Plastid-psbA-1 3UTR RNA: a 133-nucleotide RNA. The family's consensus secondary structure was predicted with LocARNA. A reference for the family is Richter et al. (2023), "Retrograde signaling in plants: A critical review focusing on the GUN pathway and beyond", Plant Commun. Clan: Plastid-psbA 3UTR RNA clan. Plastid psbA-1 is a non-coding RNA (ncRNA) present in plastids. It was identified in inverted repeat sequences in the 3 prime untranslate region (3UTR) of photosystem II quinone-binding protein (psbA).
RNA sequence: UCGAAGCUCCAACAAAUGGAUAAGACUUCGUCUUAUUGUUUAGUGUAUAGGAGUUUUUGAAAAUAGAAUAGAUAAAUAAAAGGAGCAAUAACCUCUUUCUUGGUUUAUCAAGAAAGGUUAUUGCUCCUUUAUU
Numbered sequence: 001u002c003g004a005a006g007c008u009c010c011a012a013c014a015a016a017u018g019g020a021u022a023a024g025a026c027u028u029c030g031u032c033u034u035a036u037u038g039u040u041u042a043g044u045g046u047a048u049a050g051g052a053g054u055u056u057u058u059g060a061a062a063a064u065a066g067a068a069u070a071g072a073u074a075a076a077u078a079a080a081a082g083g084a085g086c087a088a089u090a091a092c093c094u095c096u097u098u099c100u101u102g103g104u105u106u107a108u109c110a111a112g113a114a115a116g117g118u119u120a121u122u123g124c125u126c127c128u129u130u131a132u133u
Stems, first nucleotide, its partner, number of pairs: 008020003079130013093116001097114005